[Rfam]
RNA sequence: AAAUUGAAUAGAGGUAGCGGUGCAUCAGAGUAUGAAGUCGAGUAGGUAUACAAAGACGCUUCAAAAAGGUAAUCAUCGCCGAACAUUGUGUUUAGACAUAAACACCGUGUGGGGAUAGUGAGAACAUCACUAUCACUCGAUCCAUCCGGAUUGGCGCUAUAAACUGC
Numbered sequence: 001a002a003a004u005u006g007a008a009u010a011g012a013g014g015u016a017g018c019g020g021u022g023c024a025u026c027a028g029a030g031u032a033u034g035a036a037g038u039c040g041a042g043u044a045g046g047u048a049u050a051c052a053a054a055g056a057c058g059c060u061u062c063a064a065a066a067a068g069g070u071a072a073u074c075a076u077c078g079c080c081g082a083a084c085a086u087u088g089u090g091u092u093u094a095g096a097c098a099u100a101a102a103c104a105c106c107g108u109g110u111g112g113g114g115a116u117a118g119u120g121a122g123a124a125c126a127u128c129a130c131u132a133u134c135a136c137u138c139g140a141u142c143c144a145u146c147c148g149g150a151u152u153g154g155c156g157c158u159a160u161a162a163a164c165u166g167c
Stems, first nucleotide, its partner, number of pairs: 008160004017079006025071001033063006040057001083110004088105007111137002114134008

Background: A member of the RNA family "Lysine riboswitch aptamer" from Erysipelothrix sp. HDW6C, 167 nucleotides long. Gene Ontology term of the family: lysine biosynthetic process. About the family: Riboswitches are metabolite binding domains within certain messenger RNAs that serve as precision sensors for their corresponding targets.